The record is a 258-nucleotide sequence from Priestia taiwanensis, which matches "T-box leader" in Rfam. Rfam links the family to the GO term tRNA binding. The family's consensus secondary structure is taken from published work. The family's RNA type in Rfam is cis-regulatory leader.
RNA sequence: UUAAACACUUUGAAAGGAAGAGUAAUAAUAAGAUGUAGUUAUAGCGAGUUAGGGACGGUGUGAGCCUAAUACGAAGCUUAUUAUGAAAAACAUCCUGGAGUUGCUAAUUGAAAUCGUCAUAAUGCCGAGAGUAGACUUAGACGGGACUUCGCCGUUACAAGAAGAACAGUAUCGAGCAUCUCGCUCCGUACUGAUAGAGUGAGCAAUUUCGAUUGCUAAUGUGGGUGGUACCGCGGAGCCAAGCCUUUCGUCCCUUAU
Dot-bracket structure: ......((......((((......((((((.......((........((((((...........))))))))......))))))........))))...))..((((.(.........................).)))).(((.......)))...............................................((((((....)))))).....(((.......(((((.........))))))))....